[Rfam]
Rfam assigns this 122-nucleotide RNA sequence from Luteimonas aestuarii to the family "RtT RNA". By type it is a cis-regulatory element. Lineage of the source: Bacteria > Pseudomonadati > Pseudomonadota > Gammaproteobacteria > Luteimonas. On this family, see Bosl and Kersten, Nucleic Acids Res 1991: "A novel RNA product of the tyrT operon of Escherichia coli". Rfam's curators write: This family represents a bacterial cis-regulatory element known as RtT RNA. The exact function of RtT is unknown although it is thought that it may be involved in changing the cellular response in relation to amino acid starvation.
RNA sequence: CCGGCGGCUUCGAAGAGGGGGUGAGAACCCCCGUGGGUUCGACAAACCGCGCAGCGGUUUGCACGGCGAAGCCGCCCGCAGGGCGAGGCGCGUAGCGCCGAGUGAAUCCCCUCUCUCCGCCA
Numbered sequence: 001c002c003g004g005c006g007g008c009u010u011c012g013a014a015g016a017g018g019g020g021g022u023g024a025g026a027a028c029c030c031c032c033g034u035g036g037g038u039u040c041g042a043c044a045a046a047c048c049g050c051g052c053a054g055c056g057g058u059u060u061g062c063a064c065g066g067c068g069a070a071g072c073c074g075c076c077c078g079c080a081g082g083g084c085g086a087g088g089c090g091c092g093u094a095g096c097g098c099c100g101a102g103u104g105a106a107u108c109c110c111c112u113c114u115c116u117c118c119g120c121c122a
Stems, first nucleotide, its partner, number of pairs: 015113007022105001032085002038080001040078002045059004065073003